The record is an 89-nucleotide sequence from Papaver nudicaule, which matches "Small nucleolar RNA Z43" in Rfam. Its family is annotated with RNA processing and nucleolus in the Gene Ontology. On this family, see Chen et al., Nucleic Acids Res 2003: "The high diversity of snoRNAs in plants: identification and comparative study of 120 snoRNA genes from Oryza sativa".

[Rfam]
RNA sequence: AGAUAAUGAUGAUUUCUUUGGUCUCGUUCGUCGUAAUGUAUGGAUUUUUAAUCUCUACUUGACGAUCAUUCUGAUAUAAUUCUGAGUCU
Dot-bracket structure: ((((.....................................((...........)...)..........................))))
Taxonomically the source falls in Papaver (Eukaryota, Spermatophyta, Magnoliopsida, Mesangiospermae).